Annotation
The family of this 106-nucleotide sequence from Photobacterium profundum is "c-di-GMP-I riboswitch aptamer". About the family: GEMM was predicted in a large-scale screen for bacterial structured RNA regulatory elements. Genes associated with GEMM are involved in a diverse array of functions, including chemotaxis regulation, signal transduction, secretion and chitin. The source organism's lineage runs through Bacteria, Pseudomonadati, Vibrionales, Vibrionaceae and Photobacterium profundum.
RNA sequence: CACGAAACAAGGCAAACUAUUCGAAAGAAUAGGACGCAAAGCUUCCGACCUAAAAGGUAUUAUUUGUGUCUUAAAUAAUAAACCUCAUGGUAGCGGGGUUGCCGAU
Numbered sequence: 001c002a003c004g005a006a007a008c009a010a011g012g013c014a015a016a017c018u019a020u021u022c023g024a025a026a027g028a029a030u031a032g033g034a035c036g037c038a039a040a041g042c043u044u045c046c047g048a049c050c051u052a053a054a055a056g057g058u059a060u061u062a063u064u065u066g067u068g069u070c071u072u073a074a075a076u077a078a079u080a081a082a083c084c085u086c087a088u089g090g091u092a093g094c095g096g097g098g099u100u101g102c103c104g105a106u
Base pairs, nucleotide, nucleotide: 012037013036017032018031019030020029021028022027040100041099042098043097045096046095047094048091049090050089055085056084057083058082